[Rfam]
RNA sequence: UUUGUGAUGAAAGUGAAUUAAGCCAACAAGGUUUCAAGAGCCUUGUUGGCUUUUUUAAUUUCUAGACAUCAAAAAAUCGGAUUGGUAAAAAUCUCAAAACUUCGAUUUCCACCAAUCCGAUUCACUCUGUAAUAAAGAAUAAACAACAUACAGCCAUUGACACACCCAAAUUUAGGCGCGUCAAAUCGGCUAUACAUUGAUAAAUUUUUAGUUAAAGUACUUACAAAUAUACUUGCCUUCAAAUUCUCAAUUAAUUUAGUCAUUACAUGCCAUGACAUAAAGCUUACAUUACAUAUAUUAACAUGUUCCGCUACAAAACAUAUUCAGUAUAUGUAUAGAGGAUAUUUAUUCUAAGUUAAAACCUUUUCAAAUUAUAACCGCUACAAUUAUAAAUGAUUAAAGUGUUUCAACAUAUUAUAUAUAUUCCACGCUCACA
Numbered sequence: 001u002u003u004g005u006g007a008u009g010a011a012a013g014u015g016a017a018u019u020a021a022g023c024c025a026a027c028a029a030g031g032u033u034u035c036a037a038g039a040g041c042c043u044u045g046u047u048g049g050c051u052u053u054u055u056u057a058a059u060u061u062c063u064a065g066a067c068a069u070c071a072a073a074a075a076a077u078c079g080g081a082u083u084g085g086u087a088a089a090a091a092u093c094u095c096a097a098a099a100c101u102u103c104g105a106u107u108u109c110c111a112c113c114a115a116u117c118c119g120a121u122u123c124a125c126u127c128u129g130u131a132a133u134a135a136a137g138a139a140u141a142a143a144c145a146a147c148a149u150a151c152a153g154c155c156a157u158u159g160a161c162a163c164a165c166c167c168a169a170a171u172u173u174a175g176g177c178g179c180g181u182c183a184a185a186u187c188g189g190c191u192a193u194a195c196a197u198u199g200a201u202a203a204a205u206u207u208u209u210a211g212u213u214a215a216a217g218u219a220c221u222u223a224c225a226a227a228u229a230u231a232c233u234u235g236c237c238u239u240c241a242a243a244u245u246c247u248c249a250a251u252u253a254a255u256u257u258a259g260u261c262a263u264u265a266c267a268u269g270c271c272a273u274g275a276c277a278u279a280a281a282g283c284u285u286a287c288a289u290u291a292c293a294u295a296u297a298u299u300a301a302c303a304u305g306u307u308c309c310g311c312u313a314c315a316a317a318a319c320a321u322a323u324u325c326a327g328u329a330u331a332u333g334u335a336u337a338g339a340g341g342a343u344a345u346u347u348a349u350u351c352u353a354a355g356u357u358a359a360a361a362c363c364u365u366u367u368c369a370a371a372u373u374a375u376a377a378c379c380g381c382u383a384c385a386a387u388u389a390u391a392a393a394u395g396a397u398u399a400a401a402g403u404g405u406u407u408c409a410a411c412a413u414a415u416u417a418u419a420u421a422u423a424u425u426c427c428a429c430g431c432u433c434a435c436a
Stems, first nucleotide, its partner, number of pairs: 004431003008428002022050013075122005081116006089108005125340007152191004157184005165176002196251005203245005210238002215234005255281004259276005292333007303321005341425005347419003352414002355411003359407004363402004367396003372392006
Dot-bracket structure: ...(((.((............(((((((((((((...)))))))))))))........................(((((.((((((..(((((..........)))))..)))))).)))))..(((((((....................((((.(((((...((........))...)))))...))))....(((((..(((((..((...(((((..........)))))..))..))))).)))))...(((((((((........))))).))))..........(((((((....(((((.........))))).....))))))))))))))(((((.(((..((.(((.(((((((((((..((((((.........)))))).)))..)))).)))).))).))..))).))))).))))).....
A member of the RNA family "S. aureus Teg23 small RNA" from Staphylococcus aureus, 436 nucleotides long. The source organism's lineage runs through Bacteria, Bacillati, Bacillota, Bacilli and Staphylococcus aureus. Pairs were carried over by alignment from the consensus structure, which was predicted with RNAalifold. For this family Rfam cites "Genome-wide Annotation, Identification, and Global Transcriptomic Analysis of Regulatory or Small RNA Gene Expression in Staphylococcus aureus" (Carroll et al., MBio, 2016).